Annotation: The family of this 76-nucleotide sequence from Pitta sordida is "Small nucleolar RNA SNORD19". Its Rfam clan is "SNORD19 clan". Rfam classes the family as a C/D-box small nucleolar RNA. A search with the family's covariance model found it, with a score of 36 bits. On this family, see Huttenhofer et al., EMBO J 2001: "RNomics: an experimental approach that identifies 201 candidates for novel, small, non-messenger RNAs in mouse". Gene Ontology terms of the family: RNA processing and nucleolus. NCBI's taxonomy places the organism under Eukaryota, Gnathostomata, Teleostomi, Passeriformes, Pitta.

[Rfam]
RNA sequence: GAAAAAUGAUGAUAUUCCUUCUUUACCCUAUUGUUACAGUGAAGACCUCAGAUCCAACUCUGAUUUCACUCUAGUU
Numbered sequence: 001g002a003a004a005a006a007u008g009a010u011g012a013u014a015u016u017c018c019u020u021c022u023u024u025a026c027c028c029u030a031u032u033g034u035u036a037c038a039g040u041g042a043a044g045a046c047c048u049c050a051g052a053u054c055c056a057a058c059u060c061u062g063a064u065u066u067c068a069c070u071c072u073a074g075u076u
Base pairs, nucleotide, nucleotide: 001067002066003065004064